[Rfam]
RNA: EcpR1
Organism: Rhizobium sp. RU36D
RNA sequence: AUACCCCAUGAUGCUCAGGUCCGCCGCAUCUCCUGGGUCGUGGGGUCGGUCGACUGGCGUACAAAUUCAAAUACGGUUCCUCGUGCCGUUAUUGUAUGCCGGUCGACCCCCAU
Numbered sequence: 001a002u003a004c005c006c007c008a009u010g011a012u013g014c015u016c017a018g019g020u021c022c023g024c025c026g027c028a029u030c031u032c033c034u035g036g037g038u039c040g041u042g043g044g045g046u047c048g049g050u051c052g053a054c055u056g057g058c059g060u061a062c063a064a065a066u067u068c069a070a071a072u073a074c075g076g077u078u079c080c081u082c083g084u085g086c087c088g089u090u091a092u093u094g095u096a097u098g099c100c101g102g103u104c105g106a107c108c109c110c111c112a113u
Base pairs, nucleotide, nucleotide: 003046004045005044006043007042008041009040010039014037015036016035017034018033019032048108049107050106051105052104053103054102055101056100057099058098